[Rfam]
A member of the RNA family "Small nucleolar RNA SNORD10", 141 nucleotides long. The family's RNA type in Rfam is C/D-box small nucleolar RNA. The family's consensus secondary structure was predicted with WAR. The family has 22 seed sequences and 433 matches in Rfam 15.1. On this family, see Huttenhofer et al., EMBO J 2001: "RNomics: an experimental approach that identifies 201 candidates for novel, small, non-messenger RNAs in mouse".
RNA sequence: AGUUAGUGAUGAAAUCCCAUGCGUGUCAUCUGACUUCCACGUCUCGCUCUGCCUUCGCUCUGCGCUGUCUGCGUUCUGCAGCUUGGGUUUGGCUAGGGCAGAGGAUUCUGGGAAAUGAUCAGACCCGUUUAUCUGAAAACU
Numbered sequence: 001a002g003u004u005a006g007u008g009a010u011g012a013a014a015u016c017c018c019a020u021g022c023g024u025g026u027c028a029u030c031u032g033a034c035u036u037c038c039a040c041g042u043c044u045c046g047c048u049c050u051g052c053c054u055u056c057g058c059u060c061u062g063c064g065c066u067g068u069c070u071g072c073g074u075u076c077u078g079c080a081g082c083u084u085g086g087g088u089u090u091g092g093c094u095a096g097g098g099c100a101g102a103g104g105a106u107u108c109u110g111g112g113a114a115a116u117g118a119u120c121a122g123a124c125c126c127g128u129u130u131a132u133c134u135g136a137a138a139a140c141u
Stems, first nucleotide, its partner, number of pairs: 001141004047103009